The family of this 262-nucleotide sequence from Lachnospiraceae bacterium AM48-27BH is "Bacterial large signal recognition particle RNA". The base pairs follow the family's consensus structure, which is taken from published work.
Nucleotides: 262
Base pairs, nucleotide, nucleotide: 001262002261003260004259005258006257007256008056009055010054011029012028013027014026016024018022033053034052035051036050037049061255062254063253064252065251066250067249070246072244073243077240078239079238080237081236082235083234084233085232086231089227090226093224094223096221097220098219101217102216103214104213105212112208113207114206115205116204117203118202119201120197121196122195123194124193125192126188127187129186130185131184132183133182135178136177137176138175139174145170146169147168148167153162154161155160
Number, partner (000 for none) and nucleotide at each position: 001262c002261c003260g004259c005258g006257c007256a008056g009055c010054c011029g012028g013027g014026g015000a016024g017000a018022u019000a020000g021000c022018g023000g024016u025000g026014c027013c028012c029011u030000g031000u032000a033053c034052c035051u036050g037049c038000a039000a040000u041000c042000c043000g044000c045000u046000c047000u048000a049037g050036c051035a052034g053033g054010g055009g056008u057000g058000a059000u060000a061255u062254u063253u064252c065251a066250u067249u068000g069000c070246g071000g072244g073243c074000u075000a076000c077240g078239u079238g080237u081236u082235g083234u084233g085232g086231a087000g088000c089227u090226g091000c092000c093224c094223u095000u096221g097220g098219u099000a100000a101217g102216u103214g104213g105212c106000g107000a108000u109000g110000a111000c112208g113207u114206c115205u116204g117203g118202g119201u120197c121196u122195u123194a124193c125192g126188c127187a128000a129186c130185a131184g132183a133182a134000c135178u136177c137176u138175a139174u140000g141000a142000a143000c144000c145170g146169u147168g148167u149000c150000a151000g152000g153162g154161c155160a156000g157000g158000a159000a160155u161154g162153c163000a164000g165000c166000a167148g168147c169146a170145c171000u172000a173000a174139g175138u176137a177136g178135a179000u180000c181000c182133u183132u184131c185130u186129g187127u188126g189000u190000g191000c192125c193124g194123u195122g196121a197120g198000g199000c200000a201119g202118c203117c204116u205115g206114g207113a208112c209000c210000g211000a212105g213104u214103u215000a216102a217101c218000u219098g220097c221096c222000c223094a224093g225000g226090u227089a228000a229000c230000g231086u232085c233084u234083g235082u236081g237080a238079c239078a240077c241000c242000u243073g244072c245000a246070c247000a248000a249067g250066g251065u252064g253063a254062g255061a256007u257006g258005c259004g260003c261002g262001g
Background
It scores 187 bits against the family's covariance model. Clan: SRP clan. It is annotated as a non-coding RNA gene. About the family: The signal recognition particle (SRP) is a universally conserved ribonucleoprotein involved in the co-translational targeting of proteins to membranes.